[Rfam]
RNA sequence: GGGAAACGGGGAGAGCGGCGCCGACCGCGAAACAACCGGA
Numbered sequence: 001g002g003g004a005a006a007c008g009g010g011g012a013g014a015g016c017g018g019c020g021c022c023g024a025c026c027g028c029g030a031a032a033c034a035a036c037c038g039g040a
Stems, first nucleotide, its partner, number of pairs: 015028004021039003
RNA: Putative RNA-dependent RNA polymerase ribosomal frameshift site